[Rfam]
RNA sequence: AGGCAUAGUCACUUCGGUGUGGUCUCGAUCAGCCGCAUCAACUUUCUCCCCUGGGCUACGUCUCAGGGUCGAUGGAAGACGCCGACACAUCGUCCUUUCAUCCUCGCGAUGUCUGUACAACUUUCCCUCUUUCAGAGACGACAACGCGGUUUUUGUUGAUGUCUUUUGUCCGCUUUCAUUCAGCCCUGCCUUCUCAUCCCAUGAGAUGCGCAGAGGAAACAUAAAACUAAUCUCAGAA
Numbered sequence: 001a002g003g004c005a006u007a008g009u010c011a012c013u014u015c016g017g018u019g020u021g022g023u024c025u026c027g028a029u030c031a032g033c034c035g036c037a038u039c040a041a042c043u044u045u046c047u048c049c050c051c052u053g054g055g056c057u058a059c060g061u062c063u064c065a066g067g068g069u070c071g072a073u074g075g076a077a078g079a080c081g082c083c084g085a086c087a088c089a090u091c092g093u094c095c096u097u098u099c100a101u102c103c104u105c106g107c108g109a110u111g112u113c114u115g116u117a118c119a120a121c122u123u124u125c126c127c128u129c130u131u132u133c134a135g136a137g138a139c140g141a142c143a144a145c146g147c148g149g150u151u152u153u154u155g156u157u158g159a160u161g162u163c164u165u166u167u168g169u170c171c172g173c174u175u176u177c178a179u180u181c182a183g184c185c186c187u188g189c190c191u192u193c194u195c196a197u198c199c200c201a202u203g204a205g206a207u208g209c210g211c212a213g214a215g216g217a218a219a220c221a222u223a224a225a226a227c228u229a230a231u232c233u234c235a236g237a238a
Base pairs, nucleotide, nucleotide: 007043008042009041016039017038018037019036021030022029023028047141048140049137051135052134053133054132055131158232159231160230161227162226164225165224166223167221168220169219184216185215186213187212188211189210195208196207197206198205
Shown here is a 238-nucleotide part of an RNA from Lachnellula arida, a member of the family "Ascomycota telomerase RNA". Gene Ontology terms of the family: telomere maintenance via telomerase, telomerase catalytic core complex and telomerase activity. The family's RNA type in Rfam is non-coding RNA gene. The organism belongs to Lachnellula, within Eukaryota.